[Rfam]
A member of the RNA family "IS605-orfB-I RNA", 222 nucleotides long.
It is annotated as a small RNA.
Rfam's curators put it in the seed alignment.
RNA sequence: GUCGUAUAAAGAUGUAUUAGAUGCAAGACAAUCUAGCAUUUCCCUUUACGGCAUUGUAUAAAAUAUUAGAAGUUCAAAUAACAAUAGUUGUUGUAUGGUAAAUAAUCGAAACAGUUUGAGUUUGAAUGGAAUAGGUUAUCUGUAUGACCUUGGGUUGAAAAACACUAAAAAUAAUCUCAUAAUAAUGAUUUCGGAAUUUUCGUUAUUUUGAGUUACAGUGGA
Numbered sequence: 001g002u003c004g005u006a007u008a009a010a011g012a013u014g015u016a017u018u019a020g021a022u023g024c025a026a027g028a029c030a031a032u033c034u035a036g037c038a039u040u041u042c043c044c045u046u047u048a049c050g051g052c053a054u055u056g057u058a059u060a061a062a063a064u065a066u067u068a069g070a071a072g073u074u075c076a077a078a079u080a081a082c083a084a085u086a087g088u089u090g091u092u093g094u095a096u097g098g099u100a101a102a103u104a105a106u107c108g109a110a111a112c113a114g115u116u117u118g119a120g121u122u123u124g125a126a127u128g129g130a131a132u133a134g135g136u137u138a139u140c141u142g143u144a145u146g147a148c149c150u151u152g153g154g155u156u157g158a159a160a161a162a163c164a165c166u167a168a169a170a171a172u173a174a175u176c177u178c179a180u181a182a183u184a185a186u187g188a189u190u191u192c193g194g195a196a197u198u199u200u201c202g203u204u205a206u207u208u209u210g211a212g213u214u215a216c217a218g219u220g221g222a
Stems, first nucleotide, its partner, number of pairs: 001052006008045001010041006018035005023029001072127008086116007097107002133150005140218005145171001152165001154163003176212004181207007
Dot-bracket structure: ((((((.(.((((((..((((((.....).)))))))))))...).))))))...................((((((((......(((((((....((.......))..)))))))...)))))))).....(((((..[[[[[[))))).(.(((....))).).....]....((((.(((((((.............))))))).)))).]]]]]....